[Rfam]
RNA: Antisense to traI
Organism: Shigella boydii
RNA sequence: CGGCGCGCUGUCCUGAUGUCAGUUUCUCCAUGAGUUCGCCAGGUACUCUCUCCAUCAGCGGCGUGACCGCCUCCUUA
Numbered sequence: 001c002g003g004c005g006c007g008c009u010g011u012c013c014u015g016a017u018g019u020c021a022g023u024u025u026c027u028c029c030a031u032g033a034g035u036u037c038g039c040c041a042g043g044u045a046c047u048c049u050c051u052c053c054a055u056c057a058g059c060g061g062c063g064u065g066a067c068c069g070c071c072u073c074c075u076u077a
Stems, first nucleotide, its partner, number of pairs: 001069003004065008012043004017038002021036003025033002